[Rfam]
RNA sequence: CCACGUGACACGGGGUGCCCCUUGGGCUGAGAAAACACCCGUCGAACCUGAUCUAGUUAGCACUAGCGAAGGGAUGUCGCGCAUGACGCGC
Dot-bracket structure: .....(((((((((.(((((...)))).......)..)))).....(((...((((......))))...)))..)))))............
A member of the RNA family "TPP riboswitch aptamer (THI element)" from Psychromicrobium silvestre, 91 nucleotides long. It scores 67 bits against the family's covariance model.